[Rfam]
RNA sequence: UCUCAGCCUAGCCUUAGCGGGCAAAAAGUCGGCUCCUUCACCGAUCUGGCUGAGACCCUUUUAAAUGAAGC
Numbered sequence: 001u002c003u004c005a006g007c008c009u010a011g012c013c014u015u016a017g018c019g020g021g022c023a024a025a026a027a028g029u030c031g032g033c034u035c036c037u038u039c040a041c042c043g044a045u046c047u048g049g050c051u052g053a054g055a056c057c058c059u060u061u062u063a064a065a066u067g068a069a070g071c
Stems, first nucleotide, its partner, number of pairs: 001055008011022004028045005036070005
int-alpA RNA: a 71-nucleotide RNA from Glaciimonas immobilis. NCBI's taxonomy places the organism under Bacteria, Betaproteobacteria, Burkholderiales, Oxalobacteraceae, Glaciimonas. About the family: Acidobacteria (1 example), Planctomycetes (1 example), Proteobacteria. It is annotated as a small RNA.